The record is a 104-nucleotide RNA sequence from Heyndrickxia sporothermodurans, which matches "S10-Clostridia ribosomal protein leader" in Rfam. The family's RNA type in Rfam is cis-regulatory leader. A reference for the family is Eckert and Weinberg (2020), "Discovery of 20 novel ribosomal leader candidates in bacteria and archaea", BMC Microbiol. The family's consensus secondary structure is taken from published work. Lineage of the source: Bacteria > Bacilli > Caryophanales > Bacillaceae > Heyndrickxia.
RNA sequence: UGACUGCGAUGAUGUGGGAGGUUGCUGACACACCCGGCCGCUUUGCCAUGGCGCGUGUGUGGGAAAUUUCCACGGAGAAUGUCUAUUCUAAAAAUAGGCGAUAA
Dot-bracket structure: .............(((.((((...((..................................))....)))))))......((((...(((......))).)))).